The record is a 99-nucleotide RNA from Prevotella denticola, which matches "Bacteroidetes FopS (family of paralogous sRNAs)" in Rfam. The family has 12 seed sequences and 822 matches in Rfam 15.1. The RNA-binding protein RbpB and BTncRNA_FopS sRNA are involved in the post-transcription regulation of polysaccharide utilisation loci (PUL). FopS sRNAs function as post-transcriptional repressors by binding to the vicinity of the start codon of the first mRNA of target PUL polycistrons, typically corresponding to the cognate SusC homolog, impeding translation of the respective glycan transporter. The source organism's lineage runs through Bacteria, Bacteroidota, Bacteroidia, Prevotellaceae and Prevotella denticola. By type it is a small RNA. The sequence is in the family's curated seed alignment. The literature on the family includes a 2025 paper in Nat Commun by Ruttiger et al., "The global RNA-binding protein RbpB is a regulator of polysaccharide utilization in Bacteroides thetaiotaomicron".

RNA sequence: GUGUUUUUCAUGGUAUUAGAUUAUUAAGGUUAGAAGAUUAGUUGUCGUGAGACAAGUAAUCUUUCAGUCCCAGACGAACAGUCUGGGACUUUUUUUUGC
Numbered sequence: 001g002u003g004u005u006u007u008u009c010a011u012g013g014u015a016u017u018a019g020a021u022u023a024u025u026a027a028g029g030u031u032a033g034a035a036g037a038u039u040a041g042u043u044g045u046c047g048u049g050a051g052a053c054a055a056g057u058a059a060u061c062u063u064u065c066a067g068u069c070c071c072a073g074a075c076g077a078a079c080a081g082u083c084u085g086g087g088a089c090u091u092u093u094u095u096u097u098g099c
Stems, first nucleotide, its partner, number of pairs: 067089009